[Rfam]
RNA: LAGLIDADG-2 RNA
RNA sequence: AUACGGGGUUAUUAGAACUCCACUAACCUGGGGAGGUUAGGCAUCCAAAUGGGUAGCAGCGGCACCCUUCUGGAGAGACGGUCCAGAGGCCGGGUUGUCAGACCCGGUCGGGAGCCGUUUC
Number, nucleotide and partner (000 for none) at each position: 001a000002u000003a000004c000005g021006g020007g019008g018009u017010u000011a000012u000013u000014a000015g000016a000017a009018c008019u007020c006021c005022a000023c040024u039025a038026a037027c036028c035029u034030g000031g000032g000033g000034a029035g028036g027037u026038u025039a024040g023041g000042c000043a000044u074045c073046c072047a071048a000049a000050u000051g068052g066053g065054u000055a000056g063057c062058a000059g000060c000061g000062g057063c056064a000065c053066c052067c000068u051069u000070c000071u047072g046073g045074a044075g121076a120077g119078a118079c117080g116081g115082u000083c000084c000085a000086g000087a000088g109089g108090c107091c106092g105093g104094g103095u000096u000097g000098u000099c000100a000101g000102a000103c094104c093105c092106g091107g090108u089109c088110g000111g000112g000113a000114g000115c081116c080117g079118u078119u077120u076121c075